[Rfam]
RNA sequence: UACUAGCUAUGAUGUGGAAGGUUGCGACACACUCGGAAGCUUUGUCAUGGGGUGCGGCGGUAAUUUUCACGGAGCAAGUCUUAUUUUCAAAAUAGACGAAGGA
Numbered sequence: 001u002a003c004u005a006g007c008u009a010u011g012a013u014g015u016g017g018a019a020g021g022u023u024g025c026g027a028c029a030c031a032c033u034c035g036g037a038a039g040c041u042u043u044g045u046c047a048u049g050g051g052g053u054g055c056g057g058c059g060g061u062a063a064u065u066u067u068c069a070c071g072g073a074g075c076a077a078g079u080c081u082u083a084u085u086u087u088c089a090a091a092a093u094a095g096a097c098g099a100a101g102g103a
Base pairs, nucleotide, nucleotide: 014070015069016068018067019066020065021064025059026058028056079102080101081100082099085098087096088095
This 103-nucleotide RNA from Liquorilactobacillus ghanensis belongs to the Rfam family "S10-Clostridia ribosomal protein leader".
The family's consensus secondary structure is taken from published work.
The match comes from Rfam's covariance-model search (39 bits).